RNA: mir-3154 microRNA precursor family
Organism: Cavia porcellus
RNA sequence: AGGCCCCUCCUCCCCGCCCAGCUCCCGCUCACCCCUGCCACGUCAAAGGAGGCAGAAGGGGAGUCGCAGAGAGAGGGACCG
Number, nucleotide and partner (000 for none) at each position: 001a000002g080003g079004c077005c076006c075007c073008u072009c071010c000011u000012c069013c000014c000015c000016g000017c000018c000019c000020a000021g067022c000023u000024c000025c000026c066027g065028c063029u062030c061031a000032c060033c059034c058035c055036u054037g053038c052039c051040a000041c049042g000043u000044c000045a000046a000047a000048g000049g041050a000051g039052g038053c037054a036055g035056a000057a000058g034059g033060g032061g030062a029063g028064u000065c027066g026067c021068a000069g012070a000071g009072a008073g007074a000075g006076g005077g004078a000079c003080c002081g000